This 102-nucleotide RNA sequence from Gallus gallus belongs to the Rfam family "mir-454 microRNA precursor family".
RNA sequence: AGCUUCCUAACCUUAAGGAUGAGACCCUAUCAAUAUUGCCUCUGCUUUUGUGCUCAGGGUAGUAGUGCAAUAUUGCUUAUAGGGUCUUUUCUUUUGAGGGUA
Numbered sequence: 001a002g003c004u005u006c007c008u009a010a011c012c013u014u015a016a017g018g019a020u021g022a023g024a025c026c027c028u029a030u031c032a033a034u035a036u037u038g039c040c041u042c043u044g045c046u047u048u049u050g051u052g053c054u055c056a057g058g059g060u061a062g063u064a065g066u067g068c069a070a071u072a073u074u075g076c077u078u079a080u081a082g083g084g085u086c087u088u089u090u091c092u093u094u095u096g097a098g099g100g101u102a
Base pairs, nucleotide, nucleotide: 021088022087023086024085025084026083027082028081029080030079031075032074033073034072035071036070037069038068039067042065043064044063045062

Source information:
A reference for the family is Glazov et al. (2008), "A microRNA catalog of the developing chicken embryo identified by a deep sequencing approach", Genome Res.